[Rfam]
Selenocysteine transfer RNA: an 86-nucleotide RNA sequence from Paramicrosporidium saccamoebae. The source organism's lineage runs through Eukaryota, Opisthokonta, Fungi, Rozellomycota and Paramicrosporidium. The family is grouped with related families in Rfam's "tRNA clan". The family has 109 seed sequences and 4,211 matches in Rfam 15.1. For this family Rfam cites "Eukaryotic selenocysteine tRNA has the 9/4 secondary structure" (Mizutani and Goto, FEBS Lett, 2000).
Nucleotides: 086
Stems, first nucleotide, its partner, number of pairs: 001086007009078001012027006029045005048061005063077004
Number, partner (000 for none) and nucleotide at each position: 001086g002085c003084u004083g005082g006081g007080u008000c009078g010000a011000u012027c013026u014025c015024g016023g017022c018000u019000g020000g021000u022017g023016u024015c025014g026013g027012g028000g029045g030044a031043g032042g033041a034000c035000u036000u037000c038000a039000a040000a041033u042032c043031c044030u045029c046000a047000g048061c049060g050059g051058g052057u053000u054000a055000a056000c057052a058051c059050c060049c061048g062000a063077g064076c065075a066074g067000u068000u069000c070000g071000a072000u073000u074066c075065u076064g077063c078009c079000u080007a081006c082005c083004u084003a085002g086001c